[Rfam]
RNA sequence: GGCACCUGCACUCGUUGCGGUGCAACGAUGGUCAAAGC
Numbered sequence: 001g002g003c004a005c006c007u008g009c010a011c012u013c014g015u016u017g018c019g020g021u022g023c024a025a026c027g028a029u030g031g032u033c034a035a036a037g038c
Base pairs, nucleotide, nucleotide: 005031006030013027014026015025016024017023018022
Dot-bracket structure: ....((......((((((...))))))..)).......
Shown here is a 38-nucleotide sequence from Jonquetella anthropi, a member of the family "Selenocysteine insertion sequence 4". NCBI's taxonomy places the organism under Bacteria, Synergistota, Dethiosulfovibrionaceae, Jonquetella, Jonquetella anthropi. Gene Ontology term of the family: selenocysteine incorporation. It scores 61 bits against the family's covariance model. The base pairs follow the family's consensus structure, which was predicted with PFOLD.